This 146-nucleotide RNA from Blastococcus sp. CT_GayMR19 belongs to the Rfam family "c-di-AMP riboswitch aptamer (ydaO/yuaA leader)".
RNA sequence: CGAACCGCGUCGCCGGAUGGCCACGCGGACCGGGGACCCAUGGAUCCCCUGGGGUGAAUCGUGUCUGCGCACGGGGCCGCAGACAGGUAGGGCACCUUCCGGCCCGAACCCGUCAGCUAACCCGGUAGGCGGUCGCAAGGAAUGGA
Numbered sequence: 001c002g003a004a005c006c007g008c009g010u011c012g013c014c015g016g017a018u019g020g021c022c023a024c025g026c027g028g029a030c031c032g033g034g035g036a037c038c039c040a041u042g043g044a045u046c047c048c049c050u051g052g053g054g055u056g057a058a059u060c061g062u063g064u065c066u067g068c069g070c071a072c073g074g075g076g077c078c079g080c081a082g083a084c085a086g087g088u089a090g091g092g093c094a095c096c097u098u099c100c101g102g103c104c105c106g107a108a109c110c111c112g113u114c115a116g117c118u119a120a121c122c123c124g125g126u127a128g129g130c131g132g133u134c135g136c137a138a139g140g141a142a143u144g145g146a
Stems, first nucleotide, its partner, number of pairs: 001128001005028006029126006039051002052111003060087001062085008090105004
A search with the family's covariance model found it, with a score of 73 bits. From the family's description: This family represents a conserved RNA structure found upstream of the ydaO and yuaA genes in Bacillus subtilis and related genes in other bacteria.